[Rfam]
The family of this 125-nucleotide sequence from Lathyrus oleraceus is "Small nucleolar RNA snoR77". The literature on the family includes a 2002 paper in Curr Biol by Marker et al., "Experimental RNomics: identification of 140 candidates for small non-messenger RNAs in the plant Arabidopsis thaliana". A search with the family's covariance model found it, with a score of 116 bits. Rfam links the family to the GO terms RNA processing and nucleolus. The family has 5 seed sequences and 649 matches in Rfam 15.1. Rfam classes the family as an H/ACA-box small nucleolar RNA.

RNA sequence: AGGCAGCCUACUUGCUUUUAUACAAUGGCAUGAGAGGUGUUUAACUGCUCAUAAAUCAAUUUCUUUGGCUCUUCAGAUUUGCUGAGAUUUUUCUCUGAAGCUGGUCUAGUAAGCUUAAGUAUAUU
Numbered sequence: 001a002g003g004c005a006g007c008c009u010a011c012u013u014g015c016u017u018u019u020a021u022a023c024a025a026u027g028g029c030a031u032g033a034g035a036g037g038u039g040u041u042u043a044a045c046u047g048c049u050c051a052u053a054a055a056u057c058a059a060u061u062u063c064u065u066u067g068g069c070u071c072u073u074c075a076g077a078u079u080u081g082c083u084g085a086g087a088u089u090u091u092u093c094u095c096u097g098a099a100g101c102u103g104g105u106c107u108a109g110u111a112a113g114c115u116u117a118a119g120u121a122u123a124u125u
Stems, first nucleotide, its partner, number of pairs: 002041004007037002009034001011032001013030004063119003068114003075107005081101003086093002
The source organism's lineage runs through Eukaryota, Tracheophyta, Gunneridae, Hologalegina and Lathyrus.